Shown here is a 231-nucleotide RNA from Paenibacillus hemerocallicola, a member of the family "T-box leader". Rfam's curators write: Uncharged tRNA acts as the effector for transcription antitermination of genes in the T-box leader family. By type it is a cis-regulatory leader. Its family is annotated with tRNA binding in the Gene Ontology. The match comes from Rfam's covariance-model search (114 bits).
Nucleotides: 231
Base pairs, nucleotide, nucleotide: 007108008107015103016102017101018100026091027090028089029088030087031086037078038077039076048075049074050073051072052071053070054069055068112142113141114140115139116138146158147157148156175197176196177195178194179193181191202228203227204226205225213224214223215222216221
Number, partner (000 for none) and nucleotide at each position: 001000u002000a003000a004000a005000a006000u007108g008107c009000a010000a011000u012000g013000a014000u015103g016102g017101a018100g019000a020000a021000a022000a023000g024000u025000a026091g027090a028089u029088c030087a031086a032000u033000a034000c035000c036000g037078c038077u039076u040000u041000a042000c043000a044000g045000g046000g047000a048075g049074g050073a051072a052071a053070c054069g055068c056000c057000g058000g059000a060000g061000a062000u063000u064000g065000a066000g067000a068055g069054c070053g071052u072051u073050u074049c075048u076039a077038g078037g079000g080000a081000u082000a083000g084000g085000g086031u087030u088029g089028a090027u091026u092000g093000a094000a095000g096000u097000u098000c099000a100018c101017u102016c103015c104000u105000a106000a107008g108007c109000a110000g111000u112142c113141c114140c115139u116138u117000g118000a119000a120000a121000c122000c123000a124000u125000u126000a127000u128000u129000u130000g131000g132000u133000a134000a135000g136000u137000a138116g139115a140114g141113g142112g143000c144000a145000c146158c147157g148156g149000a150000u151000a152000u153000u154000u155000u156148c157147c158146g159000u160000u161000a162000u163000g164000a165000c166000a167000a168000a169000c170000a171000a172000g173000u174000g175197a176196g177195a178194a179193c180000c181191u182000c183000c184000g185000u186000a187000g188000g189000g190000a191181g192000u193179g194178u195177u196176c197175u198000a199000a200000u201000u202228a203227g204226g205225g206000u207000g208000g209000u210000a211000c212000c213224a214223c215222g216221g217000c218000u219000c220000c221216u222215c223214g224213u225205c226204c227203c228202u229000u230000u231000a